[Rfam]
RNA sequence: AAACACCACUAGGGGUGCCUCGAUCGGUUUUCUGGUCGACGGGGCUGAGAUCACACCCUCUGAACCUGACCCGGGUCAUGCCGGCGAAGGGAAGUGACCAGCGUGAUCG
Numbered sequence: 001a002a003a004c005a006c007c008a009c010u011a012g013g014g015g016u017g018c019c020u021c022g023a024u025c026g027g028u029u030u031u032c033u034g035g036u037c038g039a040c041g042g043g044g045c046u047g048a049g050a051u052c053a054c055a056c057c058c059u060c061u062g063a064a065c066c067u068g069a070c071c072c073g074g075g076u077c078a079u080g081c082c083g084g085c086g087a088a089g090g091g092a093a094g095u096g097a098c099c100a101g102c103g104u105g106a107u108c109g
Stems, first nucleotide, its partner, number of pairs: 007096004011059004016053001017045005065090003071084004
RNA: TPP riboswitch aptamer (THI element)
Organism: Parasynechococcus marenigrum